[Rfam]
RNA sequence: GAAUCUGUUUAAUGCAAUCUGGAGUUGACCGUGGAAUCCAUUUGGAGUCUAAUUGUUUUAUAUAAAAUGG
Numbered sequence: 001g002a003a004u005c006u007g008u009u010u011a012a013u014g015c016a017a018u019c020u021g022g023a024g025u026u027g028a029c030c031g032u033g034g035a036a037u038c039c040a041u042u043u044g045g046a047g048u049c050u051a052a053u054u055g056u057u058u059u060a061u062a063u064a065a066a067a068u069g070g
Stems, first nucleotide, its partner, number of pairs: 015027004033050003037046003
RNA: bablM sRNA